small nucleolar RNA snoR137: a 145-nucleotide RNA from Cucurbita maxima.
The literature on the family includes a 2009 paper in Nucleic Acids Res by Chen and Wu, "Mining small RNA sequencing data: a new approach to identify small nucleolar RNAs in Arabidopsis".
Its family is annotated with nucleolus and RNA processing in the Gene Ontology.
RNA sequence: GUUGCUUCUUUCUGGUGAACUCUCUCCUAUUAAGUCAUGGGGGAUGUUCAUGUUUCCGAAGCAUAAAUUGAUACUAAAUUUUCCAGUAUUAAACAGCUCUGUGUGAAUCCCUAUUGCACUCUGCUACCUGUCUCCUGGUACAUCA
Numbered sequence: 001g002u003u004g005c006u007u008c009u010u011u012c013u014g015g016u017g018a019a020c021u022c023u024c025u026c027c028u029a030u031u032a033a034g035u036c037a038u039g040g041g042g043g044a045u046g047u048u049c050a051u052g053u054u055u056c057c058g059a060a061g062c063a064u065a066a067a068u069u070g071a072u073a074c075u076a077a078a079u080u081u082u083c084c085a086g087u088a089u090u091a092a093a094c095a096g097c098u099c100u101g102u103g104u105g106a107a108u109c110c111c112u113a114u115u116g117c118a119c120u121c122u123g124c125u126a127c128c129u130g131u132c133u134c135c136u137g138g139u140a141c142a143u144c145a
Base pairs, nucleotide, nucleotide: 003063004062005061006060007059008058016050017049018048019047020046021044022043023042024041025040083138084137085136086135088133095125096124097123101119102118103117